[Rfam]
Shown here is a 96-nucleotide RNA from Microctonus hyperodae, a member of the family "mir-67 microRNA precursor family". The base pairs follow the family's consensus structure, which was predicted with RNAalifold. Taxonomically the source falls in Microctonus (Eukaryota, Protostomia, Mandibulata, Eumetabola). The literature on the family includes a 2010 paper in BMC Genomics by Liu et al., "MicroRNAs of Bombyx mori identified by Solexa sequencing".
RNA sequence: AUUUUCGUGAACUCACUCAACCUGGGUGUGAUGCUUGUCUACGUCUGUGGACUUCCAAGUAGCCAUCACAACCUUUUUGAGUGAGCGAACGCGAGU
Number, nucleotide and partner (000 for none) at each position: 001a000002u000003u000004u000005u000006c000007g000008u088009g000010a000011a000012c085013u084014c083015a082016c081017u080018c079019a078020a077021c000022c000023u000024g073025g072026g000027u070028g069029u068030g067031a066032u065033g064034c000035u000036u000037g000038u000039c000040u000041a000042c000043g000044u000045c000046u000047g000048u000049g000050g000051a000052c000053u000054u000055c000056c000057a000058a000059g000060u000061a000062g000063c000064c033065a032066u031067c030068a029069c028070a027071a000072c025073c024074u000075u000076u000077u020078u019079g018080a017081g016082u015083g014084a013085g012086c000087g000088a008089a000090c000091g000092c000093g000094a000095g000096u000